ZMP/ZTP riboswitch aptamer (pfl RNA motif): a 77-nucleotide RNA sequence. It is one of the family's seed sequences. Gene Ontology terms of the family: one-carbon metabolic process and regulation of purine nucleotide biosynthetic process.
RNA sequence: AGACAGUUAUAUGACUGACGGAAGUGGAUAACCACAUGGAGUAUAACAGUUGAUUGCCGACCGUCUGGGCGCACAUU
Numbered sequence: 001a002g003a004c005a006g007u008u009a010u011a012u013g014a015c016u017g018a019c020g021g022a023a024g025u026g027g028a029u030a031a032c033c034a035c036a037u038g039g040a041g042u043a044u045a046a047c048a049g050u051u052g053a054u055u056g057c058c059g060a061c062c063g064u065c066u067g068g069g070c071g072c073a074c075a076u077u
Stems, first nucleotide, its partner, number of pairs: 003050002006047007015038001017065005024035004055071004